[Rfam]
RNA sequence: GCCGAGCUUGGUAUCUCAAGCUUGUAACCCAAGUGGGGGCAUUAUGGUGUUUGGACGUUAUUCAAGCCCAACGGACUGGAUUCAGGUUUGCUACUCGCUGGCCUGCCCGUUCCAAGCAAAGAAUUGUGCUUUGUAGUCCAAGCGAAAGCAUGGGCUGCUAGGCUCUUAGAGCGGAGGGGACUGCGUCAGGCUGGUUUAACAGAGCAGCGAGAACCUCCCAUUCUUUGCAGUGGAAGGAUGACGGGCUACUGCUUCCUAAUCCAUUGAAGUCAGAUGGGUUUGUUCUAAUCGGACAUUCACUUUU
Numbered sequence: 001g002c003c004g005a006g007c008u009u010g011g012u013a014u015c016u017c018a019a020g021c022u023u024g025u026a027a028c029c030c031a032a033g034u035g036g037g038g039g040c041a042u043u044a045u046g047g048u049g050u051u052u053g054g055a056c057g058u059u060a061u062u063c064a065a066g067c068c069c070a071a072c073g074g075a076c077u078g079g080a081u082u083c084a085g086g087u088u089u090g091c092u093a094c095u096c097g098c099u100g101g102c103c104u105g106c107c108c109g110u111u112c113c114a115a116g117c118a119a120a121g122a123a124u125u126g127u128g129c130u131u132u133g134u135a136g137u138c139c140a141a142g143c144g145a146a147a148g149c150a151u152g153g154g155c156u157g158c159u160a161g162g163c164u165c166u167u168a169g170a171g172c173g174g175a176g177g178g179g180a181c182u183g184c185g186u187c188a189g190g191c192u193g194g195u196u197u198a199a200c201a202g203a204g205c206a207g208c209g210a211g212a213a214c215c216u217c218c219c220a221u222u223c224u225u226u227g228c229a230g231u232g233g234a235a236g237g238a239u240g241a242c243g244g245g246c247u248a249c250u251g252c253u254u255c256c257u258a259a260u261c262c263a264u265u266g267a268a269g270u271c272a273g274a275u276g277g278g279u280u281u282g283u284u285c286u287a288a289u290c291g292g293a294c295a296u297u298c299a300c301u302u303u304u
Stems, first nucleotide, its partner, number of pairs: 001040003004023008028037003044303001046301004052295002056291002058288003063282004068277003072273001074271004078262005085256002090252001092251002099248007107237002110235005116228009126165001128163004133158008142149002166171001173218005182211001184209003191202003
RNA: Plant signal recognition particle RNA
Organism: Olea europaea